The family of this 131-nucleotide RNA from Galbula dea is "Small Cajal body specific RNA 23". A search with the family's covariance model found it, with a score of 62 bits. Rfam classes the family as a small Cajal body RNA. Rfam links the family to the GO terms Cajal body, nucleolus and RNA processing. scaRNAs are a specific class of small nuclear RNAs which localise to the Cajal bodies and guide the modification of RNA polymerase II transcribed spliceosomal RNAs U1, U2, U4, U5 and U12. ACA11 belongs to the H/ACA box class of guide RNAs as it has the predicted hairpin-hinge-hairpin-tail structure,the conserved H/ACA-box motifs and is found associated with GAR1. H/ACA snRNAs are predicted to guide the modification of uridines to pseudouridines in substrate RNAs however, no target RNA has been identified for scaRNA ACA11.
[Rfam]
RNA sequence: GUGCUCACAAGAACCCUUAUCCUGCCCUGUGGCUGUGAUGGGUCCUGGCAAGAUGUGAGCUAGAGCAUGAGUAUUGGUUUGGGAGUGUCCCUUGCCAGCCCCCAGGAGACACUACAGUUCUCAAUACAACA
Numbered sequence: 001g002u003g004c005u006c007a008c009a010a011g012a013a014c015c016c017u018u019a020u021c022c023u024g025c026c027c028u029g030u031g032g033c034u035g036u037g038a039u040g041g042g043u044c045c046u047g048g049c050a051a052g053a054u055g056u057g058a059g060c061u062a063g064a065g066c067a068u069g070a071g072u073a074u075u076g077g078u079u080u081g082g083g084a085g086u087g088u089c090c091c092u093u094g095c096c097a098g099c100c101c102c103c104a105g106g107a108g109a110c111a112c113u114a115c116a117g118u119u120c121u122c123a124a125u126a127c128a129a130c131a
Base pairs, nucleotide, nucleotide: 003060004059005058006057007056008055013043014042018040019039020038021037025032026031071127073125074124075123076122077121079117080116081115084113085112086111087110088109089108091106094101
Dot-bracket structure: ..((((((....((...((((...((....))....)))).))...........))))))..........(.(((((.(((..((((((.(..(......)....).)))))).)))...))))).)....